[Rfam]
RNA: TPP riboswitch aptamer (THI element)
Organism: Blastomonas sp. AAP25
RNA sequence: CGCCCAUCCCCGGGGAGCCGAGCGGCUGAGAGGUGGGCGUUGCGCCCCACGACCCGUUGAACCUGAACCGGCUGAUACCGGCGGAGGGAGGGAGCGGCGUUUUUAC
Numbered sequence: 001c002g003c004c005c006a007u008c009c010c011c012g013g014g015g016a017g018c019c020g021a022g023c024g025g026c027u028g029a030g031a032g033g034u035g036g037g038c039g040u041u042g043c044g045c046c047c048c049a050c051g052a053c054c055c056g057u058u059g060a061a062c063c064u065g066a067a068c069c070g071g072c073u074g075a076u077a078c079c080g081g082c083g084g085a086g087g088g089a090g091g092g093a094g095c096g097g098c099g100u101u102u103u104u105a106c
Base pairs, nucleotide, nucleotide: 007093008092009091010090011056012055013054014053017026018025019024033050034049035048036047037046062087063086064085068081069080070079071078